[Rfam]
RNA sequence: GGCAGGUGAUGGCUUUUUCUCACGAUGGUCUGUGGAUGCCACUGUGUGCAGUGCCGAUAUCGCCGAAGGCUCAGCUGAUGCCAGCAG
Numbered sequence: 001g002g003c004a005g006g007u008g009a010u011g012g013c014u015u016u017u018u019c020u021c022a023c024g025a026u027g028g029u030c031u032g033u034g035g036a037u038g039c040c041a042c043u044g045u046g047u048g049c050a051g052u053g054c055c056g057a058u059a060u061c062g063c064c065g066a067a068g069g070c071u072c073a074g075c076u077g078a079u080g081c082c083a084g085c086a087g
Base pairs, nucleotide, nucleotide: 001082002081003080004079
RNA: Small nucleolar RNA SNORD35
Organism: Octodon degus